Rfam assigns this 102-nucleotide sequence from Epulopiscium sp. Nele67-Bin004 to the family "THF (Tetrahydrofolate) riboswitch aptamer". From the family's description: Tetrahydrofolate (THF) riboswitch was first reported for Ames et al. as an RNA motif in 5' untranslated (5'-UTR)regions of folate transport and biosynthesis genes in Firmicutes genomes. For this family Rfam cites "Long-range pseudoknot interactions dictate the regulatory response in the tetrahydrofolate riboswitch" (Huang et al., Proc Natl Acad Sci U S A, 2011). The base pairs follow the family's consensus structure, which is taken from published work. The family has 101 seed sequences and 747 matches in Rfam 15.1. NCBI's taxonomy places the organism under Bacteria, Clostridia, Lachnospirales, Lachnospiraceae, Candidatus Epulonipiscium.

[Rfam]
RNA sequence: GGCAGAGUAGGGAUAAAUGCGUUAAGUGCUUGAUACACGGGAAGUUGGUAUCUUGACGAAAAACUAUUAUAGUUUGCGGUGUUUAUCUCGCAUUCCGCUGCC
Numbered sequence: 001g002g003c004a005g006a007g008u009a010g011g012g013a014u015a016a017a018u019g020c021g022u023u024a025a026g027u028g029c030u031u032g033a034u035a036c037a038c039g040g041g042a043a044g045u046u047g048g049u050a051u052c053u054u055g056a057c058g059a060a061a062a063a064c065u066a067u068u069a070u071a072g073u074u075u076g077c078g079g080u081g082u083u084u085a086u087c088u089c090g091c092a093u094u095c096c097g098c099u100g101c102c
Base pairs, nucleotide, nucleotide: 001102002101003100004099005098010089011088012087013086014085015084016083017082018081019080020078021077022076026057027056029055032052033051034050035049036048040095041094042093044091061075062074063073064072